Source information: A member of the RNA family "c-di-AMP riboswitch aptamer (ydaO/yuaA leader)" from Insulibacter thermoxylanivorax, 141 nucleotides long. Taxonomically the source falls in Insulibacter (Bacteria, Bacillati, Bacilli, Paenibacillaceae).
[Rfam]
RNA sequence: UAAUGGUCAUAGCUUAAUUUCCGGCAGUCAGUUGCUGGAAAGCGGGGGAACCAACUUUUUGGGGCUAAUCGGCUUAACCGCCGAUGGGGGACCAUCUUCCCAAGCCCGUCAGCUAACCUCGUUUGCUAGUAGAUGGGUCAA
Numbered sequence: 001u002a003a004u005g006g007u008c009a010u011a012g013c014u015u016a017a018u019u020u021c022c023g024g025c026a027g028u029c030a031g032u033u034g035c036u037g038g039a040a041a042g043c044g045g046g047g048g049a050a051c052c053a054a055c056u057u058u059u060u061g062g063g064g065c066u067a068a069u070c071g072g073c074u075u076a077a078c079c080g081c082c083g084a085u086g087g088g089g090g091a092c093c094a095u096c097u098u099c100c101c102a103a104g105c106c107c108g109u110c111a112g113c114u115a116a117c118c119u120c121g122u123u124u125g126c127u128a129g130u131a132g133a134u135g136g137g138u139c140a141a
Base pairs, nucleotide, nucleotide: 011127012126013125018041019040020039021038022037023036024035025034026033027032042122043121044120045119046118047117052061053060062107063106064105070083071082072081073080086101087100088099089098